[Rfam]
The record is a 150-nucleotide RNA from bacteria symbiont BFo2 of Frankliniella occidentalis, which matches "Leucine operon leader" in Rfam. The literature on the family includes a 1982 paper in Annu Rev Genet by Kolter and Yanofsky, "Attenuation in amino acid biosynthetic operons". By type it is a cis-regulatory leader.
RNA sequence: CUAUAGGCUUUAAUAAUGAUUCGUUUCACUGCACUCACAGAACUCCUCCUCCUCGCUAAAUAUCAGCGCGGUUGUUCUGUGGGCGAAAACGAAUAAAGAUUAAAGCCUGAAAGAACUGAAAAACCCGCGCCGAACAGCGCGGGUUUUUUU
Numbered sequence: 001c002u003a004u005a006g007g008c009u010u011u012a013a014u015a016a017u018g019a020u021u022c023g024u025u026u027c028a029c030u031g032c033a034c035u036c037a038c039a040g041a042a043c044u045c046c047u048c049c050u051c052c053u054c055g056c057u058a059a060a061u062a063u064c065a066g067c068g069c070g071g072u073u074g075u076u077c078u079g080u081g082g083g084c085g086a087a088a089a090c091g092a093a094u095a096a097a098g099a100u101u102a103a104a105g106c107c108u109g110a111a112a113g114a115a116c117u118g119a120a121a122a123a124c125c126c127g128c129g130c131c132g133a134a135c136a137g138c139g140c141g142g143g144u145u146u147u148u149u150u
Base pairs, nucleotide, nucleotide: 004109006107007106008105009104010103012101013100014099021086022085023084024083026082027081028080029079031077046074049071050070054068055067056066057065120147121146122145123144124143125142126141127140128139129138130137
The base pairs follow the family's consensus structure, which is taken from published work. From the family's description: At least 6 amino acid operons are known to be regulated by attenuation. In each a leader sequence of 150-200 bp is found upstream of the first gene in the operon. This leader sequence can assume two different secondary structures known as the terminator and the anti-terminator structure. In each case the leader also codes for very short peptide sequence that is rich in the end product amino acid of the operon. The organism belongs to Enterobacterales, within Bacteria.